Shown here is a 69-nucleotide sequence from Piliocolobus tephrosceles, a member of the family "mir-1322 microRNA precursor family". Gene Ontology terms of the family: miRNA-mediated post-transcriptional gene silencing and RISC complex. Rfam 15.1 lists 23 matches to the family in 23 species. Pairs were carried over by alignment from the consensus structure, which was predicted with RNAalifold.
RNA sequence: AGUAUCAUGAAUUAGAAACCUACUUAUUACCUAGUAUACCUAAGAAGCGUGAUGAUGCUGCUGAUACUG
Numbered sequence: 001a002g003u004a005u006c007a008u009g010a011a012u013u014a015g016a017a018a019c020c021u022a023c024u025u026a027u028u029a030c031c032u033a034g035u036a037u038a039c040c041u042a043a044g045a046a047g048c049g050u051g052a053u054g055a056u057g058c059u060g061c062u063g064a065u066a067c068u069g
Base pairs, nucleotide, nucleotide: 001068002067003066004065005064006063007062011056012055013054014053018050019049020047021046023044024043025042026041